[Rfam]
RNA sequence: UCAUAUGUUUACUAGGGUUCCGCCGGCUGCACACCGGGUCAGGUCCAAGAGUAAACCGCUUCUGUCCAUAGGCAGGAGUGACACGGAAGGAUAAAAGCCUGGGAGAU
Numbered sequence: 001u002c003a004u005a006u007g008u009u010u011a012c013u014a015g016g017g018u019u020c021c022g023c024c025g026g027c028u029g030c031a032c033a034c035c036g037g038g039u040c041a042g043g044u045c046c047a048a049g050a051g052u053a054a055a056c057c058g059c060u061u062c063u064g065u066c067c068a069u070a071g072g073c074a075g076g077a078g079u080g081a082c083a084c085g086g087a088a089g090g091a092u093a094a095a096a097g098c099c100u101g102g103g104a105g106a107u
Stems, first nucleotide, its partner, number of pairs: 007056006015046002020043002022040001023037004057080008082102001084105001088100003
Dot-bracket structure: ......((((((..((...(((((((.......))))..).)).))....))))))((((((((........)))))))).(.[...(((.......))).)..]..
The family of this 107-nucleotide sequence from Paenibacillus athensensis is "Guanidine-I riboswitch aptamer". The match comes from Rfam's covariance-model search (88 bits). Rfam describes the family as follows. This family represents a conserved RNA structure found upstream of the ykkC and yxkD genes in Bacillus subtilis and related genes in other bacteria.